[Rfam]
RNA sequence: GAAGGCUUUGGCCCUUCGGUGUCGCCCUGCGUGGGGAGGCAUCAAACCACCUCUGGGUGCUGGUCGGGUAAAUACCAAUGCCGUUAAGUUAGGGUCUCCUGACGUUUUCGUGGGUGGUUUAGCGUCCGGGAAGCGGCGGGCAUAACCCGCCGCGG
Number, nucleotide and partner (000 for none) at each position: 001g017002a016003a015004g014005g013006c000007u000008u000009u000010g000011g000012c000013c005014c004015u003016u002017c001018g043019g042020u041021g040022u039023c038024g000025c036026c035027c034028u033029g000030c000031g000032u000033g028034g027035g026036g025037a000038g023039g022040c021041a020042u019043c018044a000045a000046a000047c155048c154049a000050c130051c129052u128053c000054u000055g125056g119057g118058u000059g115060c114061u113062g000063g000064u000065c000066g000067g000068g000069u000070a000071a000072a000073u000074a000075c000076c000077a000078a000079u000080g000081c000082c000083g000084u000085u000086a000087a000088g000089u000090u000091a000092g000093g000094g000095u000096c000097u000098c000099c000100u000101g000102a000103c000104g000105u000106u000107u000108u000109c000110g000111u000112g000113g061114g060115u059116g000117g000118u057119u056120u000121a000122g000123c000124g000125u055126c000127c000128g052129g051130g050131a000132a000133g000134c000135g151136g150137c149138g148139g147140g146141c000142a000143u000144a000145a000146c140147c139148c138149g137150c136151c135152g000153c000154g048155g047
RNA: Group II catalytic intron D1-D4-2
Organism: Nakamurella sp. PAMC28650